[Rfam]
RNA sequence: GUAGCGCCCGUCUUUCGGGACGGGCGAGGAUUGAAAC
Numbered sequence: 001g002u003a004g005c006g007c008c009c010g011u012c013u014u015u016c017g018g019g020a021c022g023g024g025c026g027a028g029g030a031u032u033g034a035a036a037c
Stems, first nucleotide, its partner, number of pairs: 005026009

A member of the RNA family "CRISPR RNA direct repeat element" from Candidatus Nitrotoga sp. AM1P, 37 nucleotides long. It scores 53 bits against the family's covariance model. The source organism's lineage runs through Bacteria, Pseudomonadati, Betaproteobacteria, Gallionellaceae and Candidatus Nitrotoga. Rfam links the family to the GO term defense response.